Rfam assigns this 119-nucleotide RNA from Mesorhizobium zhangyense to the family "Alphaproteobacterial ar14". Pairs were carried over by alignment from the consensus structure.
RNA sequence: GAAUACCCGAAGGGCGGUACCUCCUCCCACCAAACUUCGGGCAUGACGGCCGGAAUCCUCCUCCCUCCGGCCAGAUACAAGGAAAAGACCGGCACCUCCUCCCGCCGGUCUUUUUCUUU
Numbered sequence: 001g002a003a004u005a006c007c008c009g010a011a012g013g014g015c016g017g018u019a020c021c022u023c024c025u026c027c028c029a030c031c032a033a034a035c036u037u038c039g040g041g042c043a044u045g046a047c048g049g050c051c052g053g054a055a056u057c058c059u060c061c062u063c064c065c066u067c068c069g070g071c072c073a074g075a076u077a078c079a080a081g082g083a084a085a086a087g088a089c090c091g092g093c094a095c096c097u098c099c100u101c102c103c104g105c106c107g108g109u110c111u112u113u114u115u116c117u118u119u
Base pairs, nucleotide, nucleotide: 007040008039009038011036012035016031017030048072049071050070051069052068053067083114084113085112086111087110088109089108090107091106092105093104

Lineage of the source: Bacteria > Pseudomonadati > Alphaproteobacteria > Hyphomicrobiales > Mesorhizobium. The family has 118 seed sequences and 784 matches in Rfam 15.1. Smr14C2 was renamed NfeR1 (Nodule Formation Efficiency RNA) highly expressed in salt stress and during the symbiotic interaction on legume roots.